Shown here is a 131-nucleotide RNA sequence from Rattus norvegicus, a member of the family "Small nucleolar RNA SNORA3/SNORA45 family". From the family's description: The members of this family belong to the H/ACA class of snoRNAs which are thought to guide the sites of modification of uridines to pseudouridines. This family includes mouse snoMBI-28 and human homologues ACA3 (SNORA3) and ACA3-2 (SNORA45). Both ACA3 and ACA3-2 share the same host gene. MBI-28, ACA3 and ACA3-2 are all predicted to guide the pseudouridylation of residues in 28S rRNA. On this family, see Huttenhofer et al., EMBO J 2001: "RNomics: an experimental approach that identifies 201 candidates for novel, small, non-messenger RNAs in mouse". Taxonomically the source falls in Rattus (Eukaryota, Metazoa, Gnathostomata, Euteleostomi). Rfam links the family to the GO terms RNA processing and nucleolus. The family's RNA type in Rfam is H/ACA-box small nucleolar RNA.

[Rfam]
RNA sequence: GCUGAGACUUUGGUCACAUCCUGACAUGGCACUUAUCCUGGCGUGCUAGAGCUCUUGAAGAAAAUCUGCUGGUCUUCAUUCACUGAUAGGCGUCUUCAGUGUCCCUGUUAGUGCCCAGAUUAGAAACAUGU
Numbered sequence: 001g002c003u004g005a006g007a008c009u010u011u012g013g014u015c016a017c018a019u020c021c022u023g024a025c026a027u028g029g030c031a032c033u034u035a036u037c038c039u040g041g042c043g044u045g046c047u048a049g050a051g052c053u054c055u056u057g058a059a060g061a062a063a064a065u066c067u068g069c070u071g072g073u074c075u076u077c078a079u080u081c082a083c084u085g086a087u088a089g090g091c092g093u094c095u096u097c098a099g100u101g102u103c104c105c106u107g108u109u110a111g112u113g114c115c116c117a118g119a120u121u122a123g124a125a126a127c128a129u130g131u
Base pairs, nucleotide, nucleotide: 003057004056005055006054008051009050012047013046015045016044017043019041020040023037024036026034069123070122071121072120073119074118075117081113082112083111084110085109086108088106089105090104092102093101